[Rfam]
RNA sequence: CAUGGGCUUGUGAUGUAUUCCAUCUCUUGCACACUGGACCAGCGCUCCAGCUGCAGUUUGGUGUGCACGGGAUGGAAUACAUCAUGGAUUCAUG
Numbered sequence: 001c002a003u004g005g006g007c008u009u010g011u012g013a014u015g016u017a018u019u020c021c022a023u024c025u026c027u028u029g030c031a032c033a034c035u036g037g038a039c040c041a042g043c044g045c046u047c048c049a050g051c052u053g054c055a056g057u058u059u060g061g062u063g064u065g066c067a068c069g070g071g072a073u074g075g076a077a078u079a080c081a082u083c084a085u086g087g088a089u090u091c092a093u094g
Stems, first nucleotide, its partner, number of pairs: 001094006008087019028067012